[Rfam]
RNA sequence: UUUGCGCUGCUAGGAGAGAACCCGCGUGCGUUUCAAUGCACGCAUGUCGGGUCGCCGAAGGCGCAGGGUGGCUUGCCAUCAGAACGCUCAGGCAAAAGGACUGGCAAACACCU
Numbered sequence: 001u002u003u004g005c006g007c008u009g010c011u012a013g014g015a016g017a018g019a020a021c022c023c024g025c026g027u028g029c030g031u032u033u034c035a036a037u038g039c040a041c042g043c044a045u046g047u048c049g050g051g052u053c054g055c056c057g058a059a060g061g062c063g064c065a066g067g068g069u070g071g072c073u074u075g076c077c078a079u080c081a082g083a084a085c086g087c088u089c090a091g092g093c094a095a096a097a098g099g100a101c102u103g104g105c106a107a108a109c110a111c112c113u
Stems, first nucleotide, its partner, number of pairs: 008106006020052004054093003057089002061087003067080002
Shown here is a 113-nucleotide sequence from Aquabacterium sp., a member of the family "Glycine riboswitch aptamer". It scores 47 bits against the family's covariance model. Clan: Glycine riboswitch clan. The pairing is the family consensus, mapped onto this sequence.